[Rfam]
RNA sequence: UCAAAGGCUCUUUUAAGAGCCACCAUCUCUGCGACAAAAGUGCAGU
Numbered sequence: 001u002c003a004a005a006g007g008c009u010c011u012u013u014u015a016a017g018a019g020c021c022a023c024c025a026u027c028u029c030u031g032c033g034a035c036a037a038a039a040g041u042g043c044a045g046u
Stems, first nucleotide, its partner, number of pairs: 006021006